[Rfam]
RNA sequence: AAUGAUACUUCGGCUGACAACCGCCCGGUGUGUGACCGGGAUAUGGGUGCUAUCAUCUGAAACGCAGUGGUGACUGCUCCAUAU
Numbered sequence: 001a002a003u004g005a006u007a008c009u010u011c012g013g014c015u016g017a018c019a020a021c022c023g024c025c026c027g028g029u030g031u032g033u034g035a036c037c038g039g040g041a042u043a044u045g046g047g048u049g050c051u052a053u054c055a056u057c058u059g060a061a062a063c064g065c066a067g068u069g070g071u072g073a074c075u076g077c078u079c080c081a082u083a084u
Base pairs, nucleotide, nucleotide: 011023012022013021015020024040025039026038027037028036029035041084042083043082044081045080046079049077050076053073054072055071056070057069
dinG RNA: an 84-nucleotide sequence. The base pairs follow the family's consensus structure, which is taken from published work. Rfam classes the family as a small RNA. Rfam's curators put it in the seed alignment.